[Rfam]
RNA sequence: GGGCGAUGAUUAUAAAGAGAGAGGAUUGAGUGGGGAGUAUGAACAAACUCUCAUGGGAUUGGAGAAAAAAACUCAAAUCGAAAUCGAAGGAGAAAAUAGUUUUUUUUUCCCUUUUUCGAUUUUGGGCACUUUUUUCUUCAUCCCUAACCCUCGAUGAAGGUCCUUCCAAUUCGUACACUUGAUAUGAGCCCU
Numbered sequence: 001g002g003g004c005g006a007u008g009a010u011u012a013u014a015a016a017g018a019g020a021g022a023g024g025a026u027u028g029a030g031u032g033g034g035g036a037g038u039a040u041g042a043a044c045a046a047a048c049u050c051u052c053a054u055g056g057g058a059u060u061g062g063a064g065a066a067a068a069a070a071a072c073u074c075a076a077a078u079c080g081a082a083a084u085c086g087a088a089g090g091a092g093a094a095a096a097u098a099g100u101u102u103u104u105u106u107u108u109c110c111c112u113u114u115u116u117c118g119a120u121u122u123u124g125g126g127c128a129c130u131u132u133u134u135u136c137u138u139c140a141u142c143c144c145u146a147a148c149c150c151u152c153g154a155u156g157a158a159g160g161u162c163c164u165u166c167c168a169a170u171u172c173g174u175a176c177a178c179u180u181g182a183u184a185u186g187a188g189c190c191c192u
Stems, first nucleotide, its partner, number of pairs: 001191004009183004021152004027053004032048001038045001055145003061141001062137001064135004072126003075122009089110007154174005159167002
Shown here is a 192-nucleotide sequence from Schrenkiella parvula, a member of the family "Small nucleolar RNA snoR125". The family's RNA type in Rfam is C/D-box small nucleolar RNA. Rfam links the family to the GO terms nucleolus and RNA processing. Rfam's curators put it in the seed alignment.